The family of this 164-nucleotide RNA from Erpetoichthys calabaricus is "U1 spliceosomal RNA". The organism belongs to Erpetoichthys, within Eukaryota. About the family: U1 is a small nuclear RNA (snRNA) component of the spliceosome (involved in pre-mRNA splicing). Its 5' end forms complementary base pairs with the 5' splice junction, thus defining the 5' donor site of an intron. There are significant differences in sequence and secondary structure between metazoan and yeast U1 snRNAs, the latter being much longer (568 nucleotides as compared to 164 nucleotides in human). Nevertheless, secondary structure predictions suggest that all U1 snRNAs share a 'common core' consisting of helices I, II, the proximal region of III, and IV. This family does not contain the larger yeast sequences. The family's RNA type in Rfam is spliceosomal small nuclear RNA.
RNA sequence: CAUCUUACCUGGCAGGGGAGAUACCAUGAUUACCAAGGUGGUUCUCCCAGGGCGAGGCUCAUCUAUUGGACUCCAGAUGUGCUGACCCCUGCGAUUUCACCAAAUGCAGGAAACUCAACUGCAUAAUUUGUGGUAGUGGGAGCCUGUGUUUGCACUCUCCCCUG
Numbered sequence: 001c002a003u004c005u006u007a008c009c010u011g012g013c014a015g016g017g018g019a020g021a022u023a024c025c026a027u028g029a030u031u032a033c034c035a036a037g038g039u040g041g042u043u044c045u046c047c048c049a050g051g052g053c054g055a056g057g058c059u060c061a062u063c064u065a066u067u068g069g070a071c072u073c074c075a076g077a078u079g080u081g082c083u084g085a086c087c088c089c090u091g092c093g094a095u096u097u098c099a100c101c102a103a104a105u106g107c108a109g110g111a112a113a114c115u116c117a118a119c120u121g122c123a124u125a126a127u128u129u130g131u132g133g134u135a136g137u138g139g140g141a142g143c144c145u146g147u148g149u150u151u152g153c154a155c156u157c158u159c160c161c162c163u164g
Stems, first nucleotide, its partner, number of pairs: 012122004016048006023042005049090004054086001056083003060079005093116002095113001096111002100106001138163003142159001146155003